Source information
The family of this 103-nucleotide sequence from Streptococcus danieliae is "PyrR binding site".

[Rfam]
RNA sequence: UUUUCCUUUAAUUCUGUCCUGUGAGGCAGGCAAGGAGAGUCAGAUGGAAGAAACUGGGUACAGUUUAUUUUGUGGAACCUCCUUGUAUAAGGAGGUUUUUAGU
Number, nucleotide and partner (000 for none) at each position: 001u000002u000003u037004u036005c035006c034007u033008u032009u000010a000011a000012u000013u030014c029015u028016g027017u026018c025019c000020u000021g000022u000023g000024a000025g018026g017027c016028a015029g014030g013031c000032a008033a007034g006035g005036a004037g003038a000039g000040u000041c000042a000043g000044a073045u072046g071047g070048a069049a068050g000051a066052a065053a064054c063055u062056g061057g000058g000059u000060a000061c056062a055063g054064u053065u052066u051067a000068u049069u048070u047071u046072g045073u044074g000075g000076a097077a096078c095079c094080u093081c092082c091083u090084u089085g000086u000087a000088u000089a084090a083091g082092g081093a080094g079095g078096u077097u076098u000099u000100u000101a000102g000103u000
About the family: This family represents the PyrR binding site and terminator structure. The base pairs follow the family's consensus structure, which is taken from published work. Rfam classes the family as a cis-regulatory element. For this family Rfam cites "Molecular recognition of pyr mRNA by the Bacillus subtilis attenuation regulatory protein PyrR" (Bonner et al., Nucleic Acids Res, 2001). A search with the family's covariance model found it, with a score of 63 bits.